[Rfam]
RNA sequence: GUUGAAGCUCCGUCCACAAAUGGAUAAGACUUCCGUCUUAGUGUAUAUGAAUUGGUAAAGGAGCAAUACCAAACCCCUUGCUAGAACAGGGGGUUUGGUAUUGCUCCUUUUU
Numbered sequence: 001g002u003u004g005a006a007g008c009u010c011c012g013u014c015c016a017c018a019a020a021u022g023g024a025u026a027a028g029a030c031u032u033c034c035g036u037c038u039u040a041g042u043g044u045a046u047a048u049g050a051a052u053u054g055g056u057a058a059a060g061g062a063g064c065a066a067u068a069c070c071a072a073a074c075c076c077c078u079u080g081c082u083a084g085a086a087c088a089g090g091g092g093g094u095u096u097g098g099u100a101u102u103g104c105u106c107c108u109u110u111u112u
Stems, first nucleotide, its partner, number of pairs: 009024005057110013071096003075092005
The family of this 112-nucleotide sequence from Luzuriaga radicans is "Plastid-psbA-1 3UTR RNA". Pairs were carried over by alignment from the consensus structure, which was predicted with LocARNA. Plastid psbA-1 is a non-coding RNA (ncRNA) present in plastids. It was identified in inverted repeat sequences in the 3 prime untranslate region (3UTR) of photosystem II quinone-binding protein (psbA).